[Rfam]
RNA sequence: AGAAGACCUCCGAAAUUCAAGCCUGAAGGGGCGAUCGCAGGUUGUAAAAAAGCGGAAUGACGUAUUCACGUCACCCCGC
Numbered sequence: 001a002g003a004a005g006a007c008c009u010c011c012g013a014a015a016u017u018c019a020a021g022c023c024u025g026a027a028g029g030g031g032c033g034a035u036c037g038c039a040g041g042u043u044g045u046a047a048a049a050a051a052g053c054g055g056a057a058u059g060a061c062g063u064a065u066u067c068a069c070g071u072c073a074c075c076c077c078g079c
Stems, first nucleotide, its partner, number of pairs: 005043001007041003021032004052079004058073006
RNA: Pseudomonas sRNA P31